Rfam assigns this 72-nucleotide RNA sequence from Alligator sinensis to the family "Mammalian CPEB3 ribozyme". The family's consensus secondary structure is taken from published work. NCBI's taxonomy places the organism under Eukaryota, Sauria, Archosauria, Alligatoridae, Alligator.
RNA sequence: AACUGCCAUAAUGGCCAUAGCAGUGCUCAUGUCACGGCCCCCUCAGAUUUUAACGAAUCUGCAAAUUCUGCU
Numbered sequence: 001a002a003c004u005g006c007c008a009u010a011a012u013g014g015c016c017a018u019a020g021c022a023g024u025g026c027u028c029a030u031g032u033c034a035c036g037g038c039c040c041c042c043u044c045a046g047a048u049u050u051u052a053a054c055g056a057a058u059c060u061g062c063a064a065a066u067u068c069u070g071c072u
Stems, first nucleotide, its partner, number of pairs: 013039004019072004023035003044061007